RNA sequence: GUCCAGUUGGGGAUUUGCUCCACUUAGGGCCACGUGUCUGUGCCACUGAGCGUGGUGGCCUUGAGGAACCGAGGGC
Numbered sequence: 001g002u003c004c005a006g007u008u009g010g011g012g013a014u015u016u017g018c019u020c021c022a023c024u025u026a027g028g029g030c031c032a033c034g035u036g037u038c039u040g041u042g043c044c045a046c047u048g049a050g051c052g053u054g055g056u057g058g059c060c061u062u063g064a065g066g067a068a069c070c071g072a073g074g075g076c
Stems, first nucleotide, its partner, number of pairs: 001076004
The record is a 76-nucleotide sequence from Takifugu bimaculatus, which matches "Small nucleolar RNA SNORD66" in Rfam.
Rfam 15.1 lists 1,346 matches to the family in 614 species.
It scores 40 bits against the family's covariance model.
The source organism's lineage runs through Eukaryota, Deuterostomia, Vertebrata, Eurypterygia and Takifugu.
From the family's description: snoRNA HBII-142 is part of the C/D family of snoRNAs.